[Rfam]
RNA sequence: ACUGCCGUCGGACGGUACGGGCCGCAUAGGGACGACUCCCUAGCGACUGGCCCGGCCGAGAUGCGUCGGGGUCGCAGGGAGCCCCGACAACUCGCUCCGGCGAAGGAG
Numbered sequence: 001a002c003u004g005c006c007g008u009c010g011g012a013c014g015g016u017a018c019g020g021g022c023c024g025c026a027u028a029g030g031g032a033c034g035a036c037u038c039c040c041u042a043g044c045g046a047c048u049g050g051c052c053c054g055g056c057c058g059a060g061a062u063g064c065g066u067c068g069g070g071g072u073c074g075c076a077g078g079g080a081g082c083c084c085c086g087a088c089a090a091c092u093c094g095c096u097c098c099g100g101c102g103a104a105g106g107a108g
Stems, first nucleotide, its partner, number of pairs: 006102007013058004018054007028041005060093002065088001068085005
A member of the RNA family "Actinomyces-1 RNA", 108 nucleotides long. Pairs were carried over by alignment from the consensus structure, which is taken from published work.